[Rfam]
RNA sequence: AUUUCUCUGAGAUGUUCGCAAGCGGGCCAGUCCCCUGAGCCGAUAUUUCAUACCACAAGAAUGUGGCGCUCCGCGGUUGGUGAGCAUGCUCGGUCCGUCCGAGAAGCCUUAAAACUGCGACGACACAUUCACCUUGAACCAAGGGUUCAAGGGUUACAGCCUGCGGCGGCAUCUCGGAGAUUCC
Numbered sequence: 001a002u003u004u005c006u007c008u009g010a011g012a013u014g015u016u017c018g019c020a021a022g023c024g025g026g027c028c029a030g031u032c033c034c035c036u037g038a039g040c041c042g043a044u045a046u047u048u049c050a051u052a053c054c055a056c057a058a059g060a061a062u063g064u065g066g067c068g069c070u071c072c073g074c075g076g077u078u079g080g081u082g083a084g085c086a087u088g089c090u091c092g093g094u095c096c097g098u099c100c101g102a103g104a105a106g107c108c109u110u111a112a113a114a115c116u117g118c119g120a121c122g123a124c125a126c127a128u129u130c131a132c133c134u135u136g137a138a139c140c141a142a143g144g145g146u147u148c149a150a151g152g153g154u155u156a157c158a159g160c161c162u163g164c165g166g167c168g169g170c171a172u173c174u175c176g177g178a179g180a181u182u183c184c
Base pairs, nucleotide, nucleotide: 004180005179006178007177008176009175010174011173012172013171014170015169017168018167019166032153033152034151036149037148038147039146040145041144059130060129061128063126064125065124067122068121070120072119073118074117075116076115077114078113084107085106089103090102091101092100093099
Overview: A member of the RNA family "6S / SsrS RNA" from Escherichia coli, 184 nucleotides long. The base pairs follow the family's consensus structure, which is taken from published work. About the family: E. coli 6S RNA was the first non coding RNA to be sequenced, but its function was unknown until recently. It is one of the family's seed sequences. The source organism's lineage runs through Bacteria, Pseudomonadati, Gammaproteobacteria, Enterobacterales and Escherichia.